[Rfam]
RNA sequence: ACAACCAGUAAAUCUCCGUAUAUUCCUAAAAUUACCCGUAGUGAUUAACAGGGUAAUCAGCCUUUUCGGAAUAAACUCAGAAUAGAAAUUUGCGCCAGGUAACGGACAACCGGAAUUAUCCGAUAAAAAAAUGCCGGCAUUUCGCCGGCAUUGAUAUGGGAA
Dot-bracket structure: ..............(((((....(((.((((........(.((.((....)).)).).....)))).)))...............................))))).....((......)).........((((((((.....))))))))...........
Shown here is a 162-nucleotide RNA from Enterobacteriaceae bacterium RIT714, a member of the family "Enterobacterial sRNA STnc430".
It scores 112 bits against the family's covariance model.
Lineage of the source: Bacteria > Pseudomonadati > Pseudomonadota > Gammaproteobacteria > Enterobacteriaceae.